[Rfam]
RNA sequence: GAGCGGGCCGCGUCAACCGGGCAUGGCGGCAAGGUGAACAGGCGGAUUUUCCCGGUUUCUCUGCCUGGCCAACGAAAAGGCAGACGAGCACCUGUCCCGCCCGGCCC
Numbered sequence: 001g002a003g004c005g006g007g008c009c010g011c012g013u014c015a016a017c018c019g020g021g022c023a024u025g026g027c028g029g030c031a032a033g034g035u036g037a038a039c040a041g042g043c044g045g046a047u048u049u050u051c052c053c054g055g056u057u058u059c060u061c062u063g064c065c066u067g068g069c070c071a072a073c074g075a076a077a078a079g080g081c082a083g084a085c086g087a088g089c090a091c092c093u094g095u096c097c098c099g100c101c102c103g104g105c106c107c
Stems, first nucleotide, its partner, number of pairs: 006106004012022003025101003028097002033092004039067007068081003
Shown here is a 107-nucleotide RNA sequence from Mesorhizobium sp. J18, a member of the family "Rhizobiales sRNA Atu_At1". The source organism's lineage runs through Bacteria, Pseudomonadota, Alphaproteobacteria, Hyphomicrobiales and Mesorhizobium. Rfam classes the family as a small RNA. Rfam 15.1 lists 200 matches to the family in 177 species. The base pairs follow the family's consensus structure, which was predicted with CMfinder. The literature on the family includes a 2012 paper in RNA Biol by Wilms et al., "Deep sequencing uncovers numerous small RNAs on all four replicons of the plant pathogen Agrobacterium tumefaciens".